[Rfam]
RNA sequence: CUGGUUGCUAUGAUUAUAAAAAUUCCUAGUUCUGAAUGCUAUUGCCAUGGCAUGACAGACACGUUUACACCCAUUACCCAUAAAAUAUGAGCGCC
Numbered sequence: 001c002u003g004g005u006u007g008c009u010a011u012g013a014u015u016a017u018a019a020a021a022a023u024u025c026c027u028a029g030u031u032c033u034g035a036a037u038g039c040u041a042u043u044g045c046c047a048u049g050g051c052a053u054g055a056c057a058g059a060c061a062c063g064u065u066u067a068c069a070c071c072c073a074u075u076a077c078c079c080a081u082a083a084a085a086u087a088u089g090a091g092c093g094c095c
Base pairs, nucleotide, nucleotide: 003095004094006093007092008091009090